[Rfam]
RNA sequence: UUAAGUAGUUUUGCCGCUAUUACGGUUUAUGGUGGUGUAAUAGUUGCAUGCUACUUAACA
Numbered sequence: 001u002u003a004a005g006u007a008g009u010u011u012u013g014c015c016g017c018u019a020u021u022a023c024g025g026u027u028u029a030u031g032g033u034g035g036u037g038u039a040a041u042a043g044u045u046g047c048a049u050g051c052u053a054c055u056u057a058a059c060a
Stems, first nucleotide, its partner, number of pairs: 002057008011048001013047002016044008

Record summary:
microRNA mir-251 microRNA precursor family: a 60-nucleotide RNA from Caenorhabditis bovis. Its Rfam clan is "mir-252 microRNA precursor family". A reference for the family is Lim et al. (2003), "The microRNAs of Caenorhabditis elegans", Genes Dev. Lineage of the source: Eukaryota > Metazoa > Rhabditoidea > Rhabditidae > Caenorhabditis.